[Rfam]
RNA: drz-agam-1 ribozyme
RNA sequence: UUACUACCAAACCCUAUCUCCACCUCCACGUGGUGAUCGCUGGGAGCUCUUUCUAAACGAAAAGCUGCAAACGGAAAAGG
Numbered sequence: 001u002u003a004c005u006a007c008c009a010a011a012c013c014c015u016a017u018c019u020c021c022a023c024c025u026c027c028a029c030g031u032g033g034u035g036a037u038c039g040c041u042g043g044g045a046g047c048u049c050u051u052u053c054u055a056a057a058c059g060a061a062a063a064g065c066u067g068c069a070a071a072c073g074g075a076a077a078a079g080g
Stems, first nucleotide, its partner, number of pairs: 013080003017076001019074002022034003045066004050061002053059001